[Rfam]
RNA sequence: AUUUCCACUGCUGCACUGAGGGCACACACAUUUUCAGUGGGACUUGGAAUUCCAGAGAAUUGCCUUUGUGAAAAACUGGCAAUAGUUUCUUUAAAUUCCAUCUCUUAGUUUUCCAUAGGAACAUCAAGAAACA
Number, nucleotide and partner (000 for none) at each position: 001a000002u000003u000004u000005c000006c079007a000008c000009u000010g076011c000012u074013g000014c000015a000016c070017u068018g067019a066020g065021g064022g063023c062024a061025c000026a060027c000028a000029c000030a000031u000032u000033u000034u000035c000036a000037g000038u000039g000040g053041g052042a051043c000044u000045u000046g000047g000048a000049a000050u000051u042052c041053c040054a000055g000056a000057g000058a000059a000060u026061u024062g023063c022064c021065u020066u019067u018068g017069u000070g016071a000072a000073a000074a012075a000076c010077u000078g000079g006080c000081a000082a000083u000084a000085g132086u131087u130088u129089c128090u127091u126092u000093a000094a000095a000096u121097u120098c119099c118100a000101u000102c000103u000104c000105u000106u000107a000108g000109u000110u000111u000112u000113c000114c000115a000116u000117a000118g099119g098120a097121a096122c000123a000124u000125c000126a091127a090128g089129a088130a087131a086132c085133a000
About this RNA: A member of the RNA family "ODC internal ribosome entry site (IRES)" from Felis catus, 133 nucleotides long. The sequence is in the family's curated seed alignment. The source organism's lineage runs through Eukaryota, Eumetazoa, Bilateria, Vertebrata and Felis. The family's consensus secondary structure was predicted with mfold. On this family, see Pyronnet et al., Cell Mol Life Sci 2005: "Alternative splicing facilitates internal ribosome entry on the ornithine decarboxylase mRNA".